[Rfam]
RNA: Bacterial large subunit ribosomal RNA, nucleotides 2993 to 3256
Organism: Betaproteobacteria bacterium UKL13-2
RNA sequence: GGAAAUUUGACGGGGGCUGCUCCUAGUACGAGAGGACCGGAGUGGACGUACCGCUGGUGUACCUGUUGUUUCGCCAGAAGCAUCGCAGGGUAGCUAAGUACGGAAGAGAUAACCGCUGAAAGCAUCUAAGCGGGAAACUUGCCUGAAGAUAAGAUUUCCCGGGGGUUUAACCCCCUUGAAGGGUCGUUCGAGACCAGGACGUUGAUAGGCACCGUGUGGAAGCGCAGUAAUGCGUUAAGCUAAGGUGUACUAAUUGCCCGUAAG
Number, nucleotide and partner (000 for none) at each position: 001g159002g158003a157004a156005a155006u154007u153008u152009g000010a000011c145012g144013g143014g142015g000016g000017c045018u044019g043020c042021u041022c040023c039024u000025a000026g000027u000028a000029c000030g000031a000032g000033a000034g000035g000036a000037c000038c000039g023040g022041a021042g020043u019044g018045g017046a000047c102048g101049u100050a099051c098052c000053g000054c000055u096056g095057g094058u000059g000060u000061a000062c089063c088064u087065g086066u085067u082068g081069u080070u079071u078072c077073g000074c000075c000076a000077g072078a071079a070080g069081c068082a067083u000084c000085g066086c065087a064088g063089g062090g000091u000092a000093g000094c057095u056096a055097a000098g051099u050100a049101c048102g047103g000104a000105a000106g140107a139108g138109a000110u000111a000112a000113c133114c132115g131116c130117u129118g000119a000120a000121a000122g000123c000124a000125u000126c000127u000128a000129a117130g116131c115132g114133g113134g000135a000136a000137a000138c108139u107140u106141g000142c014143c013144u012145g011146a000147a000148g000149a000150u000151a000152a008153g007154a006155u005156u004157u003158c002159c001160c000161g000162g000163g175164g174165g000166u000167u000168u000169a000170a000171c000172c000173c000174c164175c163176u000177u000178g261179a000180a000181g259182g258183g257184u256185c201186g200187u199188u198189c197190g000191a000192g000193a000194c000195c000196a000197g189198g188199a187200c186201g185202u000203u000204g000205a000206u252207a251208g250209g248210c247211a246212c245213c244214g000215u000216g240217u000218g000219g236220a000221a000222g235223c234224g233225c232226a231227g000228u000229a000230a000231u226232g225233c224234g223235u222236u219237a000238a000239g000240c216241u000242a000243a000244g213245g212246u211247g210248u209249a000250c208251u207252a206253a000254u000255u000256g184257c183258c182259c181260g000261u178262a000263a000264g000